Description
The record is a 91-nucleotide RNA sequence from Medicago truncatula, which matches "MIR5298 microRNA precursor family" in Rfam.
RNA sequence: UUAGGUUUUCUUCAUUUUCUUCUGAAUUUUUUCUGGGAUUCUUGUUGUUGAAGGUUGGUGGAGAUAAUAUGAAGAUGAAGAAAACCUAACG
Number, nucleotide and partner (000 for none) at each position: 001u000002u000003a000004g000005g085006u084007u083008u082009u081010c080011u079012u078013c077014a076015u075016u074017u073018u072019c071020u000021u000022c000023u000024g000025a000026a000027u000028u000029u000030u000031u000032u000033c000034u000035g000036g000037g056038a055039u054040u053041c000042u051043u050044g000045u000046u000047g000048u000049u000050g043051a042052a000053g040054g039055u038056u037057g000058g000059u000060g000061g000062a000063g000064a000065u000066a000067a000068u000069a000070u000071g019072a018073a017074g016075a015076u014077g013078a012079a011080g010081a009082a008083a007084a006085c005086c000087u000088a000089a000090c000091g000
The base pairs follow the family's consensus structure, which was predicted with RNAalifold. Rfam links the family to the GO terms miRNA-mediated post-transcriptional gene silencing and RISC complex.